[Rfam]
RNA sequence: CUCGUCUUAUCCAUAAGAACUAGCCUGUCAUAUAGUAGGAUAAGUAGGCUAUAUGAUUUUA
Numbered sequence: 001c002u003c004g005u006c007u008u009a010u011c012c013a014u015a016a017g018a019a020c021u022a023g024c025c026u027g028u029c030a031u032a033u034a035g036u037a038g039g040a041u042a043a044g045u046a047g048g049c050u051a052u053a054u055g056a057u058u059u060u061a
Stems, first nucleotide, its partner, number of pairs: 007043006028056009
A member of the RNA family "Coronavirus 3' UTR pseudoknot" from Wencheng Sm shrew coronavirus, 61 nucleotides long. Taxonomically the source falls in Alphacoronavirus (Viruses, Pisoniviricetes, Cornidovirineae, Coronaviridae). Clan: Coronavirus 3' UTR. The literature on the family includes a 1999 paper in J Virol by Williams et al., "A phylogenetically conserved hairpin-type 3' untranslated region pseudoknot functions in coronavirus RNA replication". Pairs were carried over by alignment from the consensus structure, which is taken from published work. It is one of the family's seed sequences. By type it is a cis-regulatory element. Rfam's curators write: Coronaviruses are plus-strand RNA viruses with ~30kb genomes. The 3' UTR region of coronavirus genomes contains a conserved ~55nt pseudoknot structure which has been shown to be necessary for viral genome replication. The mechanism of cis-regulation is unclear, but this element is postulated to function in the plus-strand. The seed alignment was expanded in 2020 by Eric Nawrocki.